Rfam assigns this 185-nucleotide sequence from Brachypodium distachyon to the family "Small nucleolar RNA Z112". Rfam classes the family as a C/D-box small nucleolar RNA. The match comes from Rfam's covariance-model search (164 bits). Its family is annotated with nucleolus and RNA processing in the Gene Ontology.
RNA sequence: GUCUCGGUGAAGAGCUCUUGACCAUAGGAAGUGCCGUAUGACACUGUAAACAGCAGCUGCUUCUAUGCCGCUUCAAGUGUCCGUCCUUCGAUCAUAACCUCUGUGGUUUGGUCUGGGCUGGAAAUUCACAUUUGCACCGGCUUGAUUCAGCUGUGUGCGUGAUUUUAAACGGGUCUCUGAGGGAU
Dot-bracket structure: (((((..................................................................(.((((((((((.((...(((((.((((.....)))))))))..)).))))......)))))).)............................................)))))
Numbered sequence: 001g002u003c004u005c006g007g008u009g010a011a012g013a014g015c016u017c018u019u020g021a022c023c024a025u026a027g028g029a030a031g032u033g034c035c036g037u038a039u040g041a042c043a044c045u046g047u048a049a050a051c052a053g054c055a056g057c058u059g060c061u062u063c064u065a066u067g068c069c070g071c072u073u074c075a076a077g078u079g080u081c082c083g084u085c086c087u088u089c090g091a092u093c094a095u096a097a098c099c100u101c102u103g104u105g106g107u108u109u110g111g112u113c114u115g116g117g118c119u120g121g122a123a124a125u126u127c128a129c130a131u132u133u134g135c136a137c138c139g140g141c142u143u144g145a146u147u148c149a150g151c152u153g154u155g156u157g158c159g160u161g162a163u164u165u166u167a168a169a170c171g172g173g174u175c176u177c178u179g180a181g182g183g184a185u
Stems, first nucleotide, its partner, number of pairs: 001185005072136001074134006080122004085117002090113005096108004